[Rfam]
RNA sequence: GUCGGUAGAGUAUUUGGUGGAAUAGGCAUUUCGGACCCGGGGGGCAGUACCCCGGCGCCUCCACCACCAGCGGCGGGUGUUUUCGAAGGUUCGAAAGCGCCGCUGCUGAUGGGGGCGAAACAGGAUCGACGAGUGCAAUAAAGGCCAGGUUGCCGAUCGGUAUGGGUCCACCGCAAAGGCCCAUUCACACAAGUGCCAACGAUAACGAGGCUCUUGCGAUUGCUGCCUAA
Numbered sequence: 001g002u003c004g005g006u007a008g009a010g011u012a013u014u015u016g017g018u019g020g021a022a023u024a025g026g027c028a029u030u031u032c033g034g035a036c037c038c039g040g041g042g043g044g045c046a047g048u049a050c051c052c053c054g055g056c057g058c059c060u061c062c063a064c065c066a067c068c069a070g071c072g073g074c075g076g077g078u079g080u081u082u083u084c085g086a087a088g089g090u091u092c093g094a095a096a097g098c099g100c101c102g103c104u105g106c107u108g109a110u111g112g113g114g115g116c117g118a119a120a121c122a123g124g125a126u127c128g129a130c131g132a133g134u135g136c137a138a139u140a141a142a143g144g145c146c147a148g149g150u151u152g153c154c155g156a157u158c159g160g161u162a163u164g165g166g167u168c169c170a171c172c173g174c175a176a177a178g179g180c181c182c183a184u185u186c187a188c189a190c191a192a193g194u195g196c197c198a199a200c201g202a203u204a205a206c207g208a209g210g211c212u213c214u215u216g217c218g219a220u221u222g223c224u225g226c227c228u229a230a
Stems, first nucleotide, its partner, number of pairs: 001157005015147004027135003031132003037055005056117007158173004
Source information: permuted transfer-messenger RNA: a 230-nucleotide sequence from Sphingomonas rhizophila. Its family is annotated with RNA catabolic process in the Gene Ontology. The literature on the family includes a 2002 paper in Nucleic Acids Res by Laslett et al., "BRUCE: a program for the detection of transfer-messenger RNA genes in nucleotide sequences". Pairs were carried over by alignment from the consensus structure, which is taken from published work. Rfam classes the family as a non-coding RNA gene.